[Rfam]
RNA sequence: GUAAAGCUCGGUCGCACGAGCUUGUAACCAAAAUGGGGAUAACAAGGUGGUUGAACACUGGUCGGGUUUCACUCGGUAGGUCUGGUGUGCACAAUAUGAUGACUCGGCCGCUCCAAGUUGGGAAUUGGUCCCAUUGUAGCCUGGGCUAUGUGAUCACUAUAGCGGAGGGUUGGGAAUUGGUCCCAUUGUAGCCUGGGCUAUGUGAUCACUAUAGCGGAGGGCACAUCGUCCCUCUCUCGACAGUGAAAGGAUAACGAGUUGAUGUGUCCCAGUUCCAACUCAGCCUGGUUGACUCGGGUCAACUGAACAACCACUUUU
Numbered sequence: 001g002u003a004a005a006g007c008u009c010g011g012u013c014g015c016a017c018g019a020g021c022u023u024g025u026a027a028c029c030a031a032a033a034u035g036g037g038g039a040u041a042a043c044a045a046g047g048u049g050g051u052u053g054a055a056c057a058c059u060g061g062u063c064g065g066g067u068u069u070c071a072c073u074c075g076g077u078a079g080g081u082c083u084g085g086u087g088u089g090c091a092c093a094a095u096a097u098g099a100u101g102a103c104u105c106g107g108c109c110g111c112u113c114c115a116a117g118u119u120g121g122g123a124a125u126u127g128g129u130c131c132c133a134u135u136g137u138a139g140c141c142u143g144g145g146c147u148a149u150g151u152g153a154u155c156a157c158u159a160u161a162g163c164g165g166a167g168g169g170u171u172g173g174g175a176a177u178u179g180g181u182c183c184c185a186u187u188g189u190a191g192c193c194u195g196g197g198c199u200a201u202g203u204g205a206u207c208a209c210u211a212u213a214g215c216g217g218a219g220g221g222c223a224c225a226u227c228g229u230c231c232c233u234c235u236c237u238c239g240a241c242a243g244u245g246a247a248a249g250g251a252u253a254a255c256g257a258g259u260u261g262a263u264g265u266g267u268c269c270c271a272g273u274u275c276c277a278a279c280u281c282a283g284c285c286u287g288g289u290u291g292a293c294u295c296g297g298g299u300c301a302a303c304u305g306a307a308c309a310a311c312c313a314c315u316u317u318u
Stems, first nucleotide, its partner, number of pairs: 001040002004023007028037002044317010056305002059302001061300001062297006069291001071289003075285003079276002082272004087268001089267003094263001100261007108250002112247001114245002117241007126208005135202016209214001216231003220227002
Rfam assigns this 318-nucleotide sequence from Papaver somniferum to the family "Plant signal recognition particle RNA". Gene Ontology terms of the family: signal recognition particle, endoplasmic reticulum targeting and SRP-dependent cotranslational protein targeting to membrane, signal sequence recognition. The family's RNA type in Rfam is non-coding RNA gene. It scores 116 bits against the family's covariance model.